[Rfam]
RNA: Eukaryotic large subunit ribosomal RNA, nucleotides 3453 to 3923
RNA sequence: CAAUUGGUCGUUGCGAUAGUAAUCCUGCUCAGUACGAGAGGAACCGCAGGUUCGGACAUUUGGUUCACGCGCUCGGUCGAUCGGCCGGUGGCGCGAAGCUACCAUCCGCGGGAUUAUGCCUGAACGCCUCUAAGGCAGCAUCCCAUCUAGACGAAGCAACGAUAUUUUUGCGUUUUGUUUGUUACAAGGCCGAAAUUCGUCCUUUUAUGGUAGGUAGUACUAUGUUUAGGUCCAUGAAUUUGGUCCUCAUAGUCUACAGCUUAGCCAGAUUCGUAUGGGGUGGGAAACCAGCUACCUUCAUAGCAAUAAUUAUCGUUAUGUUGGUCGUCCCCAAGACGCGGAUCAUUUAAGGUGAUGGCAAAACGUAGAAUCGUCUGUAGACGACUUACGUACCGGCCGGGGUGUCGUACUCGGUAGAGCAGUUCCCAUGCUGCGAUCCGUUGAGACUCAGCCCUUGACUGGAGGAUUCGU
Numbered sequence: 001c002a003a004u005u006g007g008u009c010g011u012u013g014c015g016a017u018a019g020u021a022a023u024c025c026u027g028c029u030c031a032g033u034a035c036g037a038g039a040g041g042a043a044c045c046g047c048a049g050g051u052u053c054g055g056a057c058a059u060u061u062g063g064u065u066c067a068c069g070c071g072c073u074c075g076g077u078c079g080a081u082c083g084g085c086c087g088g089u090g091g092c093g094c095g096a097a098g099c100u101a102c103c104a105u106c107c108g109c110g111g112g113a114u115u116a117u118g119c120c121u122g123a124a125c126g127c128c129u130c131u132a133a134g135g136c137a138g139c140a141u142c143c144c145a146u147c148u149a150g151a152c153g154a155a156g157c158a159a160c161g162a163u164a165u166u167u168u169u170g171c172g173u174u175u176u177g178u179u180u181g182u183u184a185c186a187a188g189g190c191c192g193a194a195a196u197u198c199g200u201c202c203u204u205u206u207a208u209g210g211u212a213g214g215u216a217g218u219a220c221u222a223u224g225u226u227u228a229g230g231u232c233c234a235u236g237a238a239u240u241u242g243g244u245c246c247u248c249a250u251a252g253u254c255u256a257c258a259g260c261u262u263a264g265c266c267a268g269a270u271u272c273g274u275a276u277g278g279g280g281u282g283g284g285a286a287a288c289c290a291g292c293u294a295c296c297u298u299c300a301u302a303g304c305a306a307u308a309a310u311u312a313u314c315g316u317u318a319u320g321u322u323g324g325u326c327g328u329c330c331c332c333a334a335g336a337c338g339c340g341g342a343u344c345a346u347u348u349a350a351g352g353u354g355a356u357g358g359c360a361a362a363a364c365g366u367a368g369a370a371u372c373g374u375c376u377g378u379a380g381a382c383g384a385c386u387u388a389c390g391u392a393c394c395g396g397c398c399g400g401g402g403u404g405u406c407g408u409a410c411u412c413g414g415u416a417g418a419g420c421a422g423u424u425c426c427c428a429u430g431c432u433g434c435g436a437u438c439c440g441u442u443g444a445g446a447c448u449c450a451g452c453c454c455u456u457g458a459c460u461g462g463a464g465g466a467u468u469c470g471u
Stems, first nucleotide, its partner, number of pairs: 007163008017149003022052001024050005053108004061101003068095005073088006110144003117137005172364007368469005373389002377385001394461003398457002400454003404447002412440003416437001419434005